[Rfam]
Nucleotides: 186
Stems, first nucleotide, its partner, number of pairs: 001016006029185003036179002041173003045169002047166001049164003063161006074153003078149001085134004091127004
Number, partner (000 for none) and nucleotide at each position: 001016u002015u003014a004013u005012u006011g007000g008000u009000g010000a011006c012005a013004a014003u015002g016001a017000g018000u019000c020000u021000g022000a023000a024000g025000u026000a027000a028000g029185c030184u031183g032000g033000a034000c035000u036179g037178c038000a039000a040000a041173u042172a043171u044000c045169u046168g047166u048000a049164c050163c051162g052000a053000a054000u055000a056000a057000c058000a059000u060000g061000a062000a063161u064160u065159g066158c067157a068156u069000a070000a071000g072000a073000g074153g075152c076151a077000u078149u079000g080000a081000g082000g083000u084000u085134a086133g087132u088131c089000g090000a091127g092126g093125u094124a095000g096000c097000a098000c099000a100000a101000c102000c103000u104000g105000u106000c107000c108000a109000g110000c111000u112000u113000u114000a115000g116000c117000g118000g119000g120000a121000u122000c123000g124094u125093a126092c127091c128000g129000a130000a131088g132087g133086c134085u135000a136000g137000a138000a139000u140000c141000c142000a143000g144000c145000c146000a147000a148000a149078g150000a151076u152075g153074u154000a155000g156068a157067u158066g159065c160064a161063g162051c163050g164049g165000g166047g167000a168046u169045a170000c171043a172042u173041a174000g175000a176000a177000a178037g179036u180000u181000a182000g183031u184030a185029g186000a